[Rfam]
RNA sequence: GCGCUCGUAGCUCAGCUGGAUAGAGUACUGGUUUGCGGUACCAGCGGUCACACGUUCGAAUCGUGUCGGGCGCA
Numbered sequence: 001g002c003g004c005u006c007g008u009a010g011c012u013c014a015g016c017u018g019g020a021u022a023g024a025g026u027a028c029u030g031g032u033u034u035g036c037g038g039u040a041c042c043a044g045c046g047g048u049c050a051c052a053c054g055u056u057c058g059a060a061u062c063g064u065g066u067c068g069g070g071c072g073c074a
Stems, first nucleotide, its partner, number of pairs: 001073007010026004028044005050066005
The family of this 74-nucleotide RNA from Sulfurimonas autotrophica is "tRNA". The match comes from Rfam's covariance-model search (60 bits). Pairs were carried over by alignment from the consensus structure, which is taken from published work. Rfam classes the family as a transfer RNA. A reference for the family is Hou (1993), "The tertiary structure of tRNA and the development of the genetic code", Trends Biochem Sci.